[Rfam]
RNA sequence: GUGCAGGAUAAGUUACAAUGCAGCUUUUGCAGUACUGCAUUGUCGUUCCCCCUGCAAACAGUAAAUUGUUUCCUCGCUAUACCUGUCUGCCUGCAUCUUUUGGCUGCCAGGAACGUAAGGUUUCAGACAC
Numbered sequence: 001g002u003g004c005a006g007g008a009u010a011a012g013u014u015a016c017a018a019u020g021c022a023g024c025u026u027u028u029g030c031a032g033u034a035c036u037g038c039a040u041u042g043u044c045g046u047u048c049c050c051c052c053u054g055c056a057a058a059c060a061g062u063a064a065a066u067u068g069u070u071u072c073c074u075c076g077c078u079a080u081a082c083c084u085g086u087c088u089g090c091c092u093g094c095a096u097c098u099u100u101u102g103g104c105u106g107c108c109a110g111g112a113a114c115g116u117a118a119g120g121u122u123u124c125a126g127a128c129a130c
Stems, first nucleotide, its partner, number of pairs: 003055005015043009082111004087106001089104002